[Rfam]
RNA sequence: GGACUUGAUAGAGGCGCGGAUUUCAUCAGUACUCAAAAGCCAUAGCCCGGGCGGCUGCUUUAGAGGAAAGGGGAGGCCGCCGAAGGAUGUGCAUGGCCCGUAUGCAUGUUCUGGGACGUAUGCAUAAGAUGCUGCGGACUGUCACAACAGUGGAGCGCUAUCAGAGUA
Numbered sequence: 001g002g003a004c005u006u007g008a009u010a011g012a013g014g015c016g017c018g019g020a021u022u023u024c025a026u027c028a029g030u031a032c033u034c035a036a037a038a039g040c041c042a043u044a045g046c047c048c049g050g051g052c053g054g055c056u057g058c059u060u061u062a063g064a065g066g067a068a069a070g071g072g073g074a075g076g077c078c079g080c081c082g083a084a085g086g087a088u089g090u091g092c093a094u095g096g097c098c099c100g101u102a103u104g105c106a107u108g109u110u111c112u113g114g115g116a117c118g119u120a121u122g123c124a125u126a127a128g129a130u131g132c133u134g135c136g137g138a139c140u141g142u143c144a145c146a147a148c149a150g151u152g153g154a155g156c157g158c159u160a161u162c163a164g165a166g167u168a
Base pairs, nucleotide, nucleotide: 006163007162008161009160010159011158016080017079018078019077021075022074023073024072032065033064034063036061037060038059039058084112085111086110087109088108089107090106091105092104093103094102095101113140114139117136118135119134122132123131124130142153143152144151145150
RNA: Lysine riboswitch aptamer